[Rfam]
RNA sequence: GCCGAGCUCUGUUGCGUGAGUUUGUAACCCGAGUGGGGGCAUUAAGGUGAUUGAACGUUGACUCAGCCCUUGUCGGGUGGGGUUUAAGGUGCAAUUAACUGACUCGCCUGAUCCAAGUUGAGAGUUGAAUCAAGUGGGAUGGGCGUAGGCCUGAACCACUUGGUUCUUAGAGAGAUGGGGUACUGCGCCAGGCUGGUUUCACAGAGCAGCGAAAACCUUCCGCUCUCGACGGUGGAAGGAUAACGAGACAGGUGUAUCUUGAGCCCAUUGUGCCCCAAGAGCUGACCUCAAUCGGACGAUCAACCUUU
Numbered sequence: 001g002c003c004g005a006g007c008u009c010u011g012u013u014g015c016g017u018g019a020g021u022u023u024g025u026a027a028c029c030c031g032a033g034u035g036g037g038g039g040c041a042u043u044a045a046g047g048u049g050a051u052u053g054a055a056c057g058u059u060g061a062c063u064c065a066g067c068c069c070u071u072g073u074c075g076g077g078u079g080g081g082g083u084u085u086a087a088g089g090u091g092c093a094a095u096u097a098a099c100u101g102a103c104u105c106g107c108c109u110g111a112u113c114c115a116a117g118u119u120g121a122g123a124g125u126u127g128a129a130u131c132a133a134g135u136g137g138g139a140u141g142g143g144c145g146u147a148g149g150c151c152u153g154a155a156c157c158a159c160u161u162g163g164u165u166c167u168u169a170g171a172g173a174g175a176u177g178g179g180g181u182a183c184u185g186c187g188c189c190a191g192g193c194u195g196g197u198u199u200c201a202c203a204g205a206g207c208a209g210c211g212a213a214a215a216c217c218u219u220c221c222g223c224u225c226u227c228g229a230c231g232g233u234g235g236a237a238g239g240a241u242a243a244c245g246a247g248a249c250a251g252g253u254g255u256a257u258c259u260u261g262a263g264c265c266c267a268u269u270g271u272g273c274c275c276c277a278a279g280a281g282c283u284g285a286c287c288u289c290a291a292u293c294g295g296a297c298g299a300u301c302a303a304c305c306u307u308u
Stems, first nucleotide, its partner, number of pairs: 001040003004023006028037003044307004048302006056294002058291003063285004069281003073277001075275004080266012093253001099251003103247004108239002112236004117230009127166011140153005167172001174220002177217001179216001184213001186211003193204003
The record is a 308-nucleotide RNA from Protea cynaroides, which matches "Plant signal recognition particle RNA" in Rfam. The family's consensus secondary structure is taken from published work. Rfam classes the family as a non-coding RNA gene. A search with the family's covariance model found it, with a score of 216 bits. For this family Rfam cites "Kinship in the SRP RNA family" (Rosenblad et al., RNA Biol, 2009). NCBI's taxonomy places the organism under Eukaryota, Streptophytina, Euphyllophyta, Spermatophyta, Protea.